Rfam assigns this 154-nucleotide sequence from Planomonospora parontospora to the family "c-di-AMP riboswitch aptamer (ydaO/yuaA leader)".
The match comes from Rfam's covariance-model search (81 bits).

RNA sequence: AGAGCCGGCCCGCCGAAUCUCCGAGCCCGGAGAACCGGGGACCCACCUCCCUGAAGUCCCCCGGGGUGAAUCCGAGACGCCGUCAGCGCUCUCGGUAGGGCUGCCUCCGGCCCGAACCCGUCAGCUAACCCGGUAGGCGGUGCGAGGAAGAGGA
Numbered sequence: 001a002g003a004g005c006c007g008g009c010c011c012g013c014c015g016a017a018u019c020u021c022c023g024a025g026c027c028c029g030g031a032g033a034a035c036c037g038g039g040g041a042c043c044c045a046c047c048u049c050c051c052u053g054a055a056g057u058c059c060c061c062c063g064g065g066g067u068g069a070a071u072c073c074g075a076g077a078c079g080c081c082g083u084c085a086g087c088g089c090u091c092u093c094g095g096u097a098g099g100g101c102u103g104c105c106u107c108c109g110g111c112c113c114g115a116a117c118c119c120g121u122c123a124g125c126u127a128a129c130c131c132g133g134u135a136g137g138c139g140g141u142g143c144g145a146g147g148a149a150g151a152g153g154a
Stems, first nucleotide, its partner, number of pairs: 011139004018033005034134006044063001064119003072095006098113004